[Rfam]
RNA sequence: ACAGUGUUCUGGCUCUGCCGCUGGUUCCGAUGGAACGAGAGGAAAGUCCGGGCAGCAAAGGGCGCUCCACUUCCGAAAAUAGAAGCUAUUGGCAACAAUAGGUGUAGACAGAAGAAAAUAACCGCCAAGGCUAUAUUAACGAUAUUUUGUCGCUAUGCGGCUUGGGUAAGGGUGAGAAGGUGGUGUAAGAGACCACCGGACGACGGGCGAUCGCCGUGCCGUGUCUGCUGGAGGCUGCAAGUUCAUGUAAACCGUCGUUUGAGAAUAGCCCGUUCGAACACAAGUACGACGGAGGGUAGAAUGCUUCAACUGUAGGGCGACUUACAGGGUAGAUAAAUGGCAGGCUCUUUCUUUAUAGCAAUAUGAGGAAAGAUACAGAACCCGGCUUAUAGGAGCGCUGUUUCU
Dot-bracket structure: (((((((((((((.(((((.((.(((((...))))).))....[[[.[[[[[((((...[....(((((((((........))))(.((((....)))).)((...((((...........(((((.(((((..........................))))).)))..)).......((((((.......)))))).((((.(((....))).))).)..))).))))))))))))...((((.......(((((..............]................)))))......)))).......(((((((....)))))))...........)))))))...................................]]]]]]]].).))))))))))....
RNA: Bacterial RNase P class A